[Rfam]
Nucleotides: 100
Stems, first nucleotide, its partner, number of pairs: 007087004011050004016044001017028004035043003056081003062075004
Number, partner (000 for none) and nucleotide at each position: 001000g002000c003000g004000u005000c006000a007087u008086c009085c010084g011050a012049g013048g014047g015000g016044u017028g018027c019026c020025c021000u022000g023000c024000g025020g026019g027018g028017c029000u030000g031000a032000g033000a034000c035043g036042g037041c038000a039000u040000c041037g042036c043035c044016g045000a046000a047014c048013c049012c050011u051000u052000u053000g054000a055000a056081c057080c058079u059000g060000a061000u062075c063074c064073g065072a066000a067000u068000c069000g070000u071000a072065u073064c074063g075062g076000c077000g078000g079058a080057g081056g082000g083000a084010c085009g086008g087007a088000c089000u090000u091000g092000c093000c094000c095000a096000a097000c098000g099000a100000u